[Rfam]
RNA: sucA-II RNA
RNA sequence: CUGCGGCGCUGGAAUCGCUUUUGGCGCCGUAGUUUUAGCUCGAACCGCAGCUCACAAAGCCGUGGUUCUUAUUUGAAAUAUAUGACGACCAGCAGGGGCAUCCGGGCUGGUGCCCGGACUAUCUGCGGGAUCCGUGGUGGCUUUACCGAAGUCGCUAGACUUCGGAAGCCCGCGCGGUUUCUACGCCGGUGGUGUCCCCUUACCGAGGGUGACCA
Numbered sequence: 001c002u003g004c005g006g007c008g009c010u011g012g013a014a015u016c017g018c019u020u021u022u023g024g025c026g027c028c029g030u031a032g033u034u035u036u037a038g039c040u041c042g043a044a045c046c047g048c049a050g051c052u053c054a055c056a057a058a059g060c061c062g063u064g065g066u067u068c069u070u071a072u073u074u075g076a077a078a079u080a081u082a083u084g085a086c087g088a089c090c091a092g093c094a095g096g097g098g099c100a101u102c103c104g105g106g107c108u109g110g111u112g113c114c115c116g117g118a119c120u121a122u123c124u125g126c127g128g129g130a131u132c133c134g135u136g137g138u139g140g141c142u143u144u145a146c147c148g149a150a151g152u153c154g155c156u157a158g159a160c161u162u163c164g165g166a167a168g169c170c171c172g173c174g175c176g177g178u179u180u181c182u183a184c185g186c187c188g189g190u191g192g193u194g195u196c197c198c199c200u201u202a203c204c205g206a207g208g209g210u211g212a213c214c215a
Stems, first nucleotide, its partner, number of pairs: 001032013042068006050060003094200005099194002101118006119192005125186003129181002132177002137173004141168003146164001150161004